Rfam assigns this 89-nucleotide RNA sequence from Pan paniscus to the family "mir-BART5 microRNA precursor family". On this family, see Cai et al., PLoS Pathog 2006: "Epstein-Barr virus microRNAs are evolutionarily conserved and differentially expressed". Rfam links the family to the GO terms RISC complex and miRNA-mediated post-transcriptional gene silencing.

[Rfam]
RNA sequence: GCCUUGUGGCACCACAAGGUGAAUAUAGCUGCCCAUCGAUGUGUCGCUGGAAGUUGGUGGGCUGCUGUUCACCUAUAGUGACACAAGGG
Numbered sequence: 001g002c003c004u005u006g007u008g009g010c011a012c013c014a015c016a017a018g019g020u021g022a023a024u025a026u027a028g029c030u031g032c033c034c035a036u037c038g039a040u041g042u043g044u045c046g047c048u049g050g051a052a053g054u055u056g057g058u059g060g061g062c063u064g065c066u067g068u069u070c071a072c073c074u075a076u077a078g079u080g081a082c083a084c085a086a087g088g089g
Stems, first nucleotide, its partner, number of pairs: 002088007010080003014076001016074001018073007027066003031062008